Shown here is an 80-nucleotide sequence from Glaesserella parasuis, a member of the family "Aggregatibacter sRNA 82". About the family: Validated by RT-PCR, expression down-regulated during growth. Rfam classes the family as a small RNA.

RNA sequence: AAAAUGAUAGUCGCUCAAAGCGACUUUUUUUAUAGCCGAAAUCUAGUCAAAUCAAACCUUUCAAAGGUCCCCCCAAAUUG
Numbered sequence: 001a002a003a004a005u006g007a008u009a010g011u012c013g014c015u016c017a018a019a020g021c022g023a024c025u026u027u028u029u030u031u032a033u034a035g036c037c038g039a040a041a042u043c044u045a046g047u048c049a050a051a052u053c054a055a056a057c058c059u060u061u062c063a064a065a066g067g068u069c070c071c072c073c074c075a076a077a078u079u080g
Stems, first nucleotide, its partner, number of pairs: 009025007035047002038044001056068005
On this family, see Oogai et al., DNA Res 2017: "Small RNA repertoires and their intraspecies variation in Aggregatibacter actinomycetemcomitans". The base pairs follow the family's consensus structure, which was predicted with RNAfold.